[Rfam]
RNA sequence: AAUUGAAAAAGGCGAACUUUUCCGAAAGGUAAGGGUGCAAAGUCAUGGGCCUAAGGAAAUGAUUUAUCUAUGGUCACCAGACUGCCAUU
Numbered sequence: 001a002a003u004u005g006a007a008a009a010a011g012g013c014g015a016a017c018u019u020u021u022c023c024g025a026a027a028g029g030u031a032a033g034g035g036u037g038c039a040a041a042g043u044c045a046u047g048g049g050c051c052u053a054a055g056g057a058a059a060u061g062a063u064u065u066a067u068c069u070a071u072g073g074u075c076a077c078c079a080g081a082c083u084g085c086c087a088u089u
Stems, first nucleotide, its partner, number of pairs: 012038002017033003022029002041083004046079003049074003056068002059065001
RNA: c-di-GMP-I riboswitch aptamer
Organism: Vulcanibacillus modesticaldus